[Rfam]
RNA sequence: UCAAAGGCUCUUUUAAGAGCCACUACGUGCACAAUAAAAAGAGCUG
Numbered sequence: 001u002c003a004a005a006g007g008c009u010c011u012u013u014u015a016a017g018a019g020c021c022a023c024u025a026c027g028u029g030c031a032c033a034a035u036a037a038a039a040a041g042a043g044c045u046g
Base pairs, nucleotide, nucleotide: 006021007020008019009018010017011016
RNA: Histone 3' UTR stem-loop